[Rfam]
RNA: SraG RNA
Organism: Erwinia tasmaniensis
RNA sequence: CUUCAUUUUGCAUCCUCGCGACUAAUGACAAUCCUAACCCCUAAUGGAAUAAGGCCUCUCAUUAGCCGCGCGAAAAUCUGCAACUGAAGAUCACACGAAUCAACAAUACAAUAGUUUGCGUUUAAUUGCUGCCGCCUGCUUGAAAAAAGGGGCCAUUAAGGCCCCUUCCC
Numbered sequence: 001c002u003u004c005a006u007u008u009u010g011c012a013u014c015c016u017c018g019c020g021a022c023u024a025a026u027g028a029c030a031a032u033c034c035u036a037a038c039c040c041c042u043a044a045u046g047g048a049a050u051a052a053g054g055c056c057u058c059u060c061a062u063u064a065g066c067c068g069c070g071c072g073a074a075a076a077u078c079u080g081c082a083a084c085u086g087a088a089g090a091u092c093a094c095a096c097g098a099a100u101c102a103a104c105a106a107u108a109c110a111a112u113a114g115u116u117u118g119c120g121u122u123u124a125a126u127u128g129c130u131g132c133c134g135c136c137u138g139c140u141u142g143a144a145a146a147a148a149g150g151g152g153c154c155a156u157u158a159a160g161g162c163c164c165c166u167u168c169c170c
Stems, first nucleotide, its partner, number of pairs: 001089004010081003017072004022065007095123001149165006